[Rfam]
RNA sequence: CCCAGGGCUGCGCCCUGGGCUAUCAAAGCGCGCCCCUUCAGGGCU
Dot-bracket structure: ((((((((...))))))))............((((.....)))).